The family of this 86-nucleotide RNA from Streptomyces aurantiogriseus is "dauA ncRNA motif". From the family's description: dauA ncRNA motif was reported as a strong cis regulatory motif candidate, with potential to be a cis regulatory riboswitch type, it have been identified in genomes of the genus Streptomyces. It scores 49 bits against the family's covariance model. It is annotated as a cis-regulatory element. Its family is annotated with regulation of gene expression in the Gene Ontology. Lineage of the source: Bacteria > Bacillati > Actinomycetes > Streptomycetaceae > Streptomyces.
RNA sequence: CCCCCCGUAUCGGCGGUACGCCAGGGGCCGGACCCGGCCCUGCCGCGCGGCACUCUCCGAUGGGGCGUCCGAACCGAGGAGCCAUG
Numbered sequence: 001c002c003c004c005c006c007g008u009a010u011c012g013g014c015g016g017u018a019c020g021c022c023a024g025g026g027g028c029c030g031g032a033c034c035c036g037g038c039c040c041u042g043c044c045g046c047g048c049g050g051c052a053c054u055c056u057c058c059g060a061u062g063g064g065g066c067g068u069c070c071g072a073a074c075c076g077a078g079g080a081g082c083c084a085u086g
Stems, first nucleotide, its partner, number of pairs: 002081001004079002010060004015054003019049003024043001025040006063075002